Shown here is a 228-nucleotide part of an RNA from Absidia repens, a member of the family "Archaeal large subunit ribosomal RNA". A search with the family's covariance model found it, with a score of 1521 bits. The source organism's lineage runs through Eukaryota, Opisthokonta, Fungi, Mucoromycota and Absidia.
RNA sequence: GGUAUGGGUAUUGUAACAGUAAUUGAAGUUAGUACGAGAGGAACCCUUCAUUCAGAUAAUUGGUAUUUGCGGCUGGCUGUCUUGCCAAAGCCGCGAAGCUACCAUCUGCUGGAUAAUGGCUGAACGCCUCUAAGUCAGAAUCCAUGCUGGAAACAAUGCCAAAAUUUUAACCGGGUUUGUACUAGAUGUGUACCAAUACAUUUCUCUCGGGGAAUGGUAAACCAUAGG
Numbered sequence: 001g002g003u004a005u006g007g008g009u010a011u012u013g014u015a016a017c018a019g020u021a022a023u024u025g026a027a028g029u030u031a032g033u034a035c036g037a038g039a040g041g042a043a044c045c046c047u048u049c050a051u052u053c054a055g056a057u058a059a060u061u062g063g064u065a066u067u068u069g070c071g072g073c074u075g076g077c078u079g080u081c082u083u084g085c086c087a088a089a090g091c092c093g094c095g096a097a098g099c100u101a102c103c104a105u106c107u108g109c110u111g112g113a114u115a116a117u118g119g120c121u122g123a124a125c126g127c128c129u130c131u132a133a134g135u136c137a138g139a140a141u142c143c144a145u146g147c148u149g150g151a152a153a154c155a156a157u158g159c160c161a162a163a164a165u166u167u168u169a170a171c172c173g174g175g176u177u178u179g180u181a182c183u184a185g186a187u188g189u190g191u192a193c194c195a196a197u198a199c200a201u202u203u204c205u206c207u208c209g210g211g212g213a214a215u216g217g218u219a220a221a222c223c224a225u226a227g228g
Stems, first nucleotide, its partner, number of pairs: 007160008017149004022052001024050005053108005061101003069094005074087004110144003117137005174223004179193004199216003202212003